[Rfam]
RNA sequence: AACGCAUGACUCUUCAACCUCAGGACUUGCAGAAUUGAUGGAAUGCCGUCCUAAGGUUGUUGAGUUGUGCGUU
Numbered sequence: 001a002a003c004g005c006a007u008g009a010c011u012c013u014u015c016a017a018c019c020u021c022a023g024g025a026c027u028u029g030c031a032g033a034a035u036u037g038a039u040g041g042a043a044u045g046c047c048g049u050c051c052u053a054a055g056g057u058u059g060u061u062g063a064g065u066u067g068u069g070c071g072u073u
Stems, first nucleotide, its partner, number of pairs: 002072005010064003015059006022052005029046003